The family of this 86-nucleotide RNA from Protopolystoma xenopodis is "Selenocysteine transfer RNA". The organism belongs to Protopolystoma, within Eukaryota. For this family Rfam cites "Eukaryotic selenocysteine tRNA has the 9/4 secondary structure" (Mizutani and Goto, FEBS Lett, 2000). Pairs were carried over by alignment from the consensus structure, which is taken from published work.
RNA sequence: GCCGGGAUGAUCCCCAGUGGUCUGGGGUGCAGGCUUCAGACCUGUAGCCGGUUCGCGCCGGAGAGGUUCGAUUCCUCCUUCCCGGC
Dot-bracket structure: (((((((.(..((((((....))))))((((((.......)))))).(((((....))))).((((.......))))).)))))))
Numbered sequence: 001g002c003c004g005g006g007a008u009g010a011u012c013c014c015c016a017g018u019g020g021u022c023u024g025g026g027g028u029g030c031a032g033g034c035u036u037c038a039g040a041c042c043u044g045u046a047g048c049c050g051g052u053u054c055g056c057g058c059c060g061g062a063g064a065g066g067u068u069c070g071a072u073u074c075c076u077c078c079u080u081c082c083c084g085g086c
Stems, first nucleotide, its partner, number of pairs: 001086007009078001012027006028046006048061005063077004